[Rfam]
RNA: Enterobacterial sRNA STnc240
RNA sequence: UUCAAAUGGUGCAAAAUAUGCGGCCUGCAAAAUAGAAAACUAACCGACGUUUAAGAGACGUCGGUUAUUUUUUUGC
Number, nucleotide and partner (000 for none) at each position: 001u000002u000003c000004a000005a000006a000007u000008g000009g000010u000011g021012c020013a000014a000015a000016a000017u000018a000019u000020g012021c011022g000023g000024c000025c000026u000027g000028c000029a000030a000031a000032a000033u000034a000035g000036a000037a000038a000039a000040c000041u067042a066043a065044c064045c063046g062047a061048c060049g059050u000051u000052u000053a000054a000055g000056a000057g000058a000059c049060g048061u047062c046063g045064g044065u043066u042067a041068u000069u000070u000071u000072u000073u000074u000075g000076c000